The family of this 67-nucleotide RNA from Virgibacillus sp. SK37 is "Bacillaceae-1 RNA". The family's consensus secondary structure is taken from published work. The match comes from Rfam's covariance-model search (65 bits). NCBI's taxonomy places the organism under Bacteria, Bacillati, Bacillota, Bacillaceae, Virgibacillus.
RNA sequence: AGUGGAGGGCGGCAAUCUAAGAACGCCACGUCCUGUGGCAACGAUUGCAUGACCAACGUCCUGUUGC
Numbered sequence: 001a002g003u004g005g006a007g008g009g010c011g012g013c014a015a016u017c018u019a020a021g022a023a024c025g026c027c028a029c030g031u032c033c034u035g036u037g038g039c040a041a042c043g044a045u046u047g048c049a050u051g052a053c054c055a056a057c058g059u060c061c062u063g064u065u066g067c
Stems, first nucleotide, its partner, number of pairs: 012048006025039005054066004